[Rfam]
RNA sequence: CUCUUAUCCAGAGAGGUGGAGGGAUAUGGCCCGAUGAAGCCUCAGCAACCGCAGGCAUUGCCUGAAAGGUGCUAAUUCCAUCAAAGCGCAGGCGCUUUGGCAGAUGAGAG
Numbered sequence: 001c002u003c004u005u006a007u008c009c010a011g012a013g014a015g016g017u018g019g020a021g022g023g024a025u026a027u028g029g030c031c032c033g034a035u036g037a038a039g040c041c042u043c044a045g046c047a048a049c050c051g052c053a054g055g056c057a058u059u060g061c062c063u064g065a066a067a068g069g070u071g072c073u074a075a076u077u078c079c080a081u082c083a084a085a086g087c088g089c090a091g092g093c094g095c096u097u098u099g100g101c102a103g104a105u106g107a108g109a110g
Stems, first nucleotide, its partner, number of pairs: 001110008013043005021032003026081004044073004049069002052064003077102001082099006